RNA sequence: UUUGGGAAGUGAUGAACAAUUCAUUUCAUAUAUCCUUUUAUGGAUUUAUGUAUAUGAUGAAAAAUUGCACGUCAGUCUGAUCCCAUA
Dot-bracket structure: (.(((((.........................................................................))))).)
Numbered sequence: 001u002u003u004g005g006g007a008a009g010u011g012a013u014g015a016a017c018a019a020u021u022c023a024u025u026u027c028a029u030a031u032a033u034c035c036u037u038u039u040a041u042g043g044a045u046u047u048a049u050g051u052a053u054a055u056g057a058u059g060a061a062a063a064a065u066u067g068c069a070c071g072u073c074a075g076u077c078u079g080a081u082c083c084c085a086u087a
Stems, first nucleotide, its partner, number of pairs: 001087001003085005
The record is an 87-nucleotide RNA sequence from Panicum miliaceum, which matches "Small nucleolar RNA Z122" in Rfam. Pairs were carried over by alignment from the consensus structure, which was predicted with PFOLD. It is annotated as a C/D-box small nucleolar RNA. The match comes from Rfam's covariance-model search (73 bits). For this family Rfam cites "The high diversity of snoRNAs in plants: identification and comparative study of 120 snoRNA genes from Oryza sativa" (Chen et al., Nucleic Acids Res, 2003).